The family of this 109-nucleotide RNA sequence from Necator americanus is "SL2 RNA". The family is grouped with related families in Rfam's "SL clan". By type it is a non-coding RNA gene. The family's consensus secondary structure is taken from published work. From the family's description: This family represents SL2 RNA. SL2 RNA is involved in trans splicing in lower eukaryotes.
RNA sequence: GGUUUUAACACAGUAUCUCAAGGUACUGUGGGCUUCUGACCUACCGCUUGCGGUUGUGUCAGUAACCUUAAGUUUUGGAUCGCCUUUUCGGGGUAUCCGAGUGGGCAAA
Numbered sequence: 001g002g003u004u005u006u007a008a009c010a011c012a013g014u015a016u017c018u019c020a021a022g023g024u025a026c027u028g029u030g031g032g033c034u035u036c037u038g039a040c041c042u043a044c045c046g047c048u049u050g051c052g053g054u055u056g057u058g059u060c061a062g063u064a065a066c067c068u069u070a071a072g073u074u075u076u077g078g079a080u081c082g083c084c085u086u087u088u089c090g091g092g093g094u095a096u097c098c099g100a101g102u103g104g105g106c107a108a109a
Stems, first nucleotide, its partner, number of pairs: 007035002009031001013027001016025001018023001037061004041056001043054003085107001087105004092098002